[Rfam]
The family of this 69-nucleotide sequence from Rhizobium leguminosarum is "S-element".
The literature on the family includes a 2004 paper in Mol Microbiol by Venkova-Canova et al., "Two discrete elements are required for the replication of a repABC plasmid: an antisense RNA and a stem-loop structure".

RNA sequence: AGUCAAGAGUCUUUGGCACCGUAAUUUGGUGAGCAGGUUUCUUUUGCCUUUUUGAAGGUGAAGAAGAUG
Numbered sequence: 001a002g003u004c005a006a007g008a009g010u011c012u013u014u015g016g017c018a019c020c021g022u023a024a025u026u027u028g029g030u031g032a033g034c035a036g037g038u039u040u041c042u043u044u045u046g047c048c049u050u051u052u053u054g055a056a057g058g059u060g061a062a063g064a065a066g067a068u069g
Base pairs, nucleotide, nucleotide: 010064011063012062014061017060018059019058020057022056025055026054028052029051031049033047034046035045036044037043
The sequence is in the family's curated seed alignment. The source organism's lineage runs through Bacteria, Alphaproteobacteria, Hyphomicrobiales, Rhizobium and Rhizobium leguminosarum. The family's consensus secondary structure is taken from published work. Rfam 15.1 lists 231 matches to the family in 124 species.